[Rfam]
RNA sequence: UGUAGCUAGGUUUGUGGUUGAAAGUCGAUGCCAGUCGCAGGCGAAACGAUCCACGUAAGUUAAACAAAGUUUUAAUGAGCAUGGUGCGGCUUAGAAGUAAGACCUACCAGCCAAUAAAGGCUGAGAGGGUUAGUAGUGAGAGGUUAACUCCGGGUAGCGAAAGCUCCAGUAGGCGAGUGUGGGGUCAAAGACCAGGUCAACUAGCUAUA
Numbered sequence: 001u002g003u004a005g006c007u008a009g010g011u012u013u014g015u016g017g018u019u020g021a022a023a024g025u026c027g028a029u030g031c032c033a034g035u036c037g038c039a040g041g042c043g044a045a046a047c048g049a050u051c052c053a054c055g056u057a058a059g060u061u062a063a064a065c066a067a068a069g070u071u072u073u074a075a076u077g078a079g080c081a082u083g084g085u086g087c088g089g090c091u092u093a094g095a096a097g098u099a100a101g102a103c104c105u106a107c108c109a110g111c112c113a114a115u116a117a118a119g120g121c122u123g124a125g126a127g128g129g130u131u132a133g134u135a136g137u138g139a140g141a142g143g144u145u146a147a148c149u150c151c152g153g154g155u156a157g158c159g160a161a162a163g164c165u166c167c168a169g170u171a172g173g174c175g176a177g178u179g180u181g182g183g184g185u186c187a188a189a190g191a192c193c194a195g196g197u198c199a200a201c202u203a204g205c206u207a208u209a
Base pairs, nucleotide, nucleotide: 001209002208003207004206005205006204007203008202009201012200013199014198015194016193017192018191019190028180029179030178031041033091034090035089036088037087038086039085050084051083058076060074062072063071082187103173104172105171106170107169108123109122110121111120112119127166128165129164130163136158137157142151143150
A member of the RNA family "raiA RNA", 209 nucleotides long. It is annotated as a riboswitch.